[Rfam]
RNA sequence: GCCACAUGAUGUUUGCAAUUGGGAAGUGAGCGCUCUGCGCGCGGUGCUGACCCUUAUCUAUCACCCUUGACUGAUGGCU
Numbered sequence: 001g002c003c004a005c006a007u008g009a010u011g012u013u014u015g016c017a018a019u020u021g022g023g024a025a026g027u028g029a030g031c032g033c034u035c036u037g038c039g040c041g042c043g044g045u046g047c048u049g050a051c052c053c054u055u056a057u058c059u060a061u062c063a064c065c066c067u068u069g070a071c072u073g074a075u076g077g078c079u
Stems, first nucleotide, its partner, number of pairs: 001078004030040004